[Rfam]
RNA sequence: ACAGCAUCAGUGAUGACAAAAACCUUGUAAUCAUCCUUGCACUUUGAAUUUUUAUAGUGAAGAAAACUAAUGGGGAAAUUUGAGUCUGAGAUGCUU
Numbered sequence: 001a002c003a004g005c006a007u008c009a010g011u012g013a014u015g016a017c018a019a020a021a022a023c024c025u026u027g028u029a030a031u032c033a034u035c036c037u038u039g040c041a042c043u044u045u046g047a048a049u050u051u052u053u054a055u056a057g058u059g060a061a062g063a064a065a066a067c068u069a070a071u072g073g074g075g076a077a078a079u080u081u082g083a084g085u086c087u088g089a090g091a092u093g094c095u096u
Base pairs, nucleotide, nucleotide: 003095004094005093006092007091008090
This 96-nucleotide sequence from Papaver somniferum belongs to the Rfam family "Small nucleolar RNA snoR26". The family's RNA type in Rfam is C/D-box small nucleolar RNA. A search with the family's covariance model found it, with a score of 71 bits. The source organism's lineage runs through Eukaryota, Euphyllophyta, Ranunculales, Papaveraceae and Papaver. The family's consensus secondary structure was predicted with WAR.